Rfam assigns this 78-nucleotide sequence from Serratia proteamaculans to the family "KDPG-aldolase RNA". The sequence is in the family's curated seed alignment. Rfam classes the family as a small RNA.
[Rfam]
RNA sequence: GGUACGGCCGGACGCCCGCGAGACUCCGUGGGCCCCUGUGGCAGGGGCGUGCCAUUGAUAACCCGUAAGUAAUGGAGA
Numbered sequence: 001g002g003u004a005c006g007g008c009c010g011g012a013c014g015c016c017c018g019c020g021a022g023a024c025u026c027c028g029u030g031g032g033c034c035c036c037u038g039u040g041g042c043a044g045g046g047g048c049g050u051g052c053c054a055u056u057g058a059u060a061a062c063c064c065g066u067a068a069g070u071a072a073u074g075g076a077g078a
Stems, first nucleotide, its partner, number of pairs: 001053006014033007064069001